[Rfam]
RNA sequence: CAUCGCCGCGCGGGAGAGCCCGGGUCCGUCCCGGCACCGAAGGAGCAAGCGCCCCGCCAACCUCUCAGGUCCCCCGUACCGCGCGUCGAGG
Numbered sequence: 001c002a003u004c005g006c007c008g009c010g011c012g013g014g015a016g017a018g019c020c021c022g023g024g025u026c027c028g029u030c031c032c033g034g035c036a037c038c039g040a041a042g043g044a045g046c047a048a049g050c051g052c053c054c055c056g057c058c059a060a061c062c063u064c065u066c067a068g069g070u071c072c073c074c075c076g077u078a079c080c081g082c083g084c085g086u087c088g089a090g091g
Stems, first nucleotide, its partner, number of pairs: 007085007020034004036070003039066002043064003049057002
RNA: Glycine riboswitch aptamer
Organism: Serinibacter salmoneus